[Rfam]
RNA sequence: ACUAGCGCAAAGUUAGUUUAUGGGGACACCACCCCCGUACCUAGGAGAACUAGGAAUUGGACUUCUUGAAGAGAGAAAACAAAUG
Numbered sequence: 001a002c003u004a005g006c007g008c009a010a011a012g013u014u015a016g017u018u019u020a021u022g023g024g025g026a027c028a029c030c031a032c033c034c035c036c037g038u039a040c041c042u043a044g045g046a047g048a049a050c051u052a053g054g055a056a057u058u059g060g061a062c063u064u065c066u067u068g069a070a071g072a073g074a075g076a077a078a079a080c081a082a083a084u085g
Stems, first nucleotide, its partner, number of pairs: 001017006019039007040054004